Description: This 180-nucleotide sequence from Xenopus tropicalis belongs to the Rfam family "Small nucleolar RNA SNORA23". The organism belongs to Silurana, within Eukaryota. The family's consensus secondary structure was predicted with RNAalifold. The match comes from Rfam's covariance-model search (130 bits). The literature on the family includes a 2001 paper in EMBO J by Huttenhofer et al., "RNomics: an experimental approach that identifies 201 candidates for novel, small, non-messenger RNAs in mouse". Gene Ontology terms of the family: RNA processing and nucleolus. The members of this family belong to the H/ACA class of snoRNAs which are thought to guide the sites of modification of uridines to pseudouridines. This family includes human snoRNA ACA23 (SNORA23) and mouse snoMBI-1. ACA23 is predicted to guide the pseudouridylation of residue U3737 and U4331 of 28S rRNA.
RNA sequence: CAGGCCCAGUGUGCGCAGUGUCAGUCUGUGUUUGUGGAGCUGCUCGCUUGCGUUCUGCAUUCUGGCAGCGCCAUACACACGCAACCUGCGGCCAGAGAUCAAUGUGAGAUCAUAGUACUGGUCUAGUGAUGUCUAACCGACGCUUCUACCACUGGCCAGCCUCCAAUCUCUCAGACACAA
Numbered sequence: 001c002a003g004g005c006c007c008a009g010u011g012u013g014c015g016c017a018g019u020g021u022c023a024g025u026c027u028g029u030g031u032u033u034g035u036g037g038a039g040c041u042g043c044u045c046g047c048u049u050g051c052g053u054u055c056u057g058c059a060u061u062c063u064g065g066c067a068g069c070g071c072c073a074u075a076c077a078c079a080c081g082c083a084a085c086c087u088g089c090g091g092c093c094a095g096a097g098a099u100c101a102a103u104g105u106g107a108g109a110u111c112a113u114a115g116u117a118c119u120g121g122u123c124u125a126g127u128g129a130u131g132u133c134u135a136a137c138c139g140a141c142g143c144u145u146c147u148a149c150c151a152c153u154g155g156c157c158a159g160c161c162u163c164c165a166a167u168c169u170c171u172c173a174g175a176c177a178c179a180a
Base pairs, nucleotide, nucleotide: 013089014088015087029081030080031079033077034076035073036072037071039069040068042066043065044064046062049059050058051057105173106172107171108170109169118159119158120157121156122155123154125153126152127151128150131141132140133139